[Rfam]
RNA sequence: CGAGUCGGUCGGACGGUCGCGUCGCCGUCGAACCCGGGCAACCGGAAGCGCCGGCGCCGAGGAACGUCCGGGCUCCGAAGGGCAAGGUGGUGGCUAACGGCCACCCGGGGUGACCCGCGGGACAGUGCCACAGAAAGCAGACCGCCGGCGUCGGGCGACCGGCGUCGGUAAGGGUGAAACGGUGGUGUAAGAGACCACCAGCGCAUCCGGUGACGGGUGCGGCUCGGUAAACCCCACCUGGAGCAAGGUCAGACAGGGAGCGUUCGAGGGCGGCCCGCCCGAGCUCCCGGGUAGACCGCUCGAGGCCUGCGGCAACGCAGGCCCUAGAUGGAUGACCGUCACCCGCGUCCGGGCAACCGGCGCGGGCACAGAACCCGGCGUACAGACCGACUCGUCCG
Numbered sequence: 001c002g003a004g005u006c007g008g009u010c011g012g013a014c015g016g017u018c019g020c021g022u023c024g025c026c027g028u029c030g031a032a033c034c035c036g037g038g039c040a041a042c043c044g045g046a047a048g049c050g051c052c053g054g055c056g057c058c059g060a061g062g063a064a065c066g067u068c069c070g071g072g073c074u075c076c077g078a079a080g081g082g083c084a085a086g087g088u089g090g091u092g093g094c095u096a097a098c099g100g101c102c103a104c105c106c107g108g109g110g111u112g113a114c115c116c117g118c119g120g121g122a123c124a125g126u127g128c129c130a131c132a133g134a135a136a137g138c139a140g141a142c143c144g145c146c147g148g149c150g151u152c153g154g155g156c157g158a159c160c161g162g163c164g165u166c167g168g169u170a171a172g173g174g175u176g177a178a179a180c181g182g183u184g185g186u187g188u189a190a191g192a193g194a195c196c197a198c199c200a201g202c203g204c205a206u207c208c209g210g211u212g213a214c215g216g217g218u219g220c221g222g223c224u225c226g227g228u229a230a231a232c233c234c235c236a237c238c239u240g241g242a243g244c245a246a247g248g249u250c251a252g253a254c255a256g257g258g259a260g261c262g263u264u265c266g267a268g269g270g271c272g273g274c275c276c277g278c279c280c281g282a283g284c285u286c287c288c289g290g291g292u293a294g295a296c297c298g299c300u301c302g303a304g305g306c307c308u309g310c311g312g313c314a315a316c317g318c319a320g321g322c323c324c325u326a327g328a329u330g331g332a333u334g335a336c337c338g339u340c341a342c343c344c345g346c347g348u349c350c351g352g353g354c355a356a357c358c359g360g361c362g363c364g365g366g367c368a369c370a371g372a373a374c375c376c377g378g379c380g381u382a383c384a385g386a387c388c389g390a391c392u393c394g395u396c397c398g
Base pairs, nucleotide, nucleotide: 001394002393003392004391005390006389007388008387009386010385011383012340013339014338015337016336017335018334020059021058023056024055025054026053027052064381065380066379068378069377070376071375072374073243074242075241076240080276081275082274083273085239086238087237088236089235090104091103092102093101094100105119106117107116108115109114120234121233125232126231127228128227129226142173143172144169145168146167147166148165149164150163151162152161153160154159181199182198183197184196185195186194201223202221203220204219205218206217207216208215209214247297248296249295250294256288257287258286259285260284261283268280269279270278271277304323305322306321307320308319309318310317311316
Source information: Shown here is a 398-nucleotide RNA sequence from Isoptericola variabilis, a member of the family "Bacterial RNase P class A". Rfam classes the family as a ribozyme. From the family's description: Ribonuclease P (RNase P) is a ubiquitous endoribonuclease, found in archaea, bacteria and eukarya as well as chloroplasts and mitochondria.